SL2 RNA: a 109-nucleotide sequence from Strongylus vulgaris. It scores 57 bits against the family's covariance model. On this family, see Evans and Blumenthal, Mol Cell Biol 2000: "trans splicing of polycistronic Caenorhabditis elegans pre-mRNAs: analysis of the SL2 RNA". The family has 30 seed sequences and 598 matches in Rfam 15.1. The family's RNA type in Rfam is non-coding RNA gene. Rfam links the family to the GO term mRNA trans splicing, via spliceosome. Rfam's curators write: This family represents SL2 RNA. SL2 RNA is involved in trans splicing in lower eukaryotes. Trans-splicing is a form of RNA processing. The acquisition of a spliced leader from a SL RNA is a intra-molecular reaction which precisely joins exons derived from separately transcribed RNAs. Approximately 25% of C. elegans genes are organised into polycistronic transcription units and the presence of SL2 on an mRNA is an indication the the gene is in an operon.
RNA sequence: GGUUUUAAUCCAGUAUCUCAAGGUACUAAGGGUGUCUGACCUGCCAUUUGUGGUUGCGUCGCAAACCUCAAUUUUUGGACCGCUUUCUCGUGGUAUCCGAGAAGGCAAA
Numbered sequence: 001g002g003u004u005u006u007a008a009u010c011c012a013g014u015a016u017c018u019c020a021a022g023g024u025a026c027u028a029a030g031g032g033u034g035u036c037u038g039a040c041c042u043g044c045c046a047u048u049u050g051u052g053g054u055u056g057c058g059u060c061g062c063a064a065a066c067c068u069c070a071a072u073u074u075u076u077g078g079a080c081c082g083c084u085u086u087c088u089c090g091u092g093g094u095a096u097c098c099g100a101g102a103a104g105g106c107a108a109a
Base pairs, nucleotide, nucleotide: 008035009032010031016025018023037061038060039059040058041056043054044053045052084107086105087104088103091100092098093097